The family of this 106-nucleotide RNA sequence from Cavia porcellus is "Small nucleolar RNA SNORD23". The family has 15 seed sequences and 153 matches in Rfam 15.1. Its family is annotated with nucleolus and RNA processing in the Gene Ontology. Taxonomically the source falls in Cavia (Eukaryota, Bilateria, Gnathostomata, Euarchontoglires). The literature on the family includes a 2001 paper in EMBO J by Huttenhofer et al., "RNomics: an experimental approach that identifies 201 candidates for novel, small, non-messenger RNAs in mouse".
RNA sequence: UGCCCGGUGAUGACUCCAUCCUUGCUCCCCGUGCCCCCAGGGGCUGUGGGCGACAACCUUGCUGCCCCGGGGUGGCCCGGUGAGCCGUUCCCGGGGGCUGAGGGCA
Numbered sequence: 001u002g003c004c005c006g007g008u009g010a011u012g013a014c015u016c017c018a019u020c021c022u023u024g025c026u027c028c029c030c031g032u033g034c035c036c037c038c039a040g041g042g043g044c045u046g047u048g049g050g051c052g053a054c055a056a057c058c059u060u061g062c063u064g065c066c067c068c069g070g071g072g073u074g075g076c077c078c079g080g081u082g083a084g085c086c087g088u089u090c091c092c093g094g095g096g097g098c099u100g101a102g103g104g105c106a
Stems, first nucleotide, its partner, number of pairs: 001106005
Dot-bracket structure: (((((................................................................................................)))))

Description: The match comes from Rfam's covariance-model search (99 bits). It is annotated as a C/D-box small nucleolar RNA.